Shown here is a 132-nucleotide RNA from Otolemur garnettii, a member of the family "Small nucleolar RNA U109".
The organism belongs to Otolemur, within Eukaryota.
For this family Rfam cites "A common sequence motif determines the Cajal body-specific localization of box H/ACA scaRNAs" (Richard et al., EMBO J, 2003).
Rfam classes the family as an H/ACA-box small nucleolar RNA.

[Rfam]
RNA sequence: AUGCACAUGGAAAUGUCUGCUUCUCAUUCCUGUGUGGGCGGGGAUAUAUUCCUAACAUGCUAAUUAAAAAAGGAGUUCUCAGGGCUUCUGACUACAGUGGAGGUUGGGUGGUAAUAGAUUUUUCCAACAAAA
Numbered sequence: 001a002u003g004c005a006c007a008u009g010g011a012a013a014u015g016u017c018u019g020c021u022u023c024u025c026a027u028u029c030c031u032g033u034g035u036g037g038g039c040g041g042g043g044a045u046a047u048a049u050u051c052c053u054a055a056c057a058u059g060c061u062a063a064u065u066a067a068a069a070a071a072g073g074a075g076u077u078c079u080c081a082g083g084g085c086u087u088c089u090g091a092c093u094a095c096a097g098u099g100g101a102g103g104u105u106g107g108g109u110g111g112u113a114a115u116a117g118a119u120u121u122u123u124c125c126a127a128c129a130a131a132a
Stems, first nucleotide, its partner, number of pairs: 003060003008055001016042007023034001072125004084112002088108001089106004093100001